[Rfam]
RNA sequence: UCUGGUUUCUUGCUUCUCCAUAAAAAAGCAAGUGGUGCGGAUGGGGUAACCCCGCCUGGUUUCUUGCCUCCAGUCAAAGGGCAAGUGGCGAGCCUGAGU
Numbered sequence: 001u002c003u004g005g006u007u008u009c010u011u012g013c014u015u016c017u018c019c020a021u022a023a024a025a026a027a028g029c030a031a032g033u034g035g036u037g038c039g040g041a042u043g044g045g046g047u048a049a050c051c052c053c054g055c056c057u058g059g060u061u062u063c064u065u066g067c068c069u070c071c072a073g074u075c076a077a078a079g080g081g082c083a084a085g086u087g088g089c090g091a092g093c094c095u096g097a098g099u
Stems, first nucleotide, its partner, number of pairs: 009032007042054005056073004063085006
Shown here is a 99-nucleotide RNA sequence, a member of the family "wcaG RNA".